[Rfam]
RNA: pemK RNA
RNA sequence: AUAAUGAUACUUCCGUAAGACGCGGCCCGGCCACAGUGAAGGCGGGGAGGUUAAAUUCCUAUGA
Number, nucleotide and partner (000 for none) at each position: 001a000002u000003a000004a000005u000006g000007a000008u000009a000010c000011u000012u061013c025014c024015g023016u022017a000018a000019g000020a000021c000022g016023c015024g014025g013026c047027c046028c045029g000030g043031c042032c041033a000034c000035a000036g000037u000038g000039a000040a000041g032042g031043c030044g000045g028046g027047g026048a060049g059050g058051u000052u000053a000054a000055a000056u000057u000058c050059c049060u048061a012062u000063g000064a000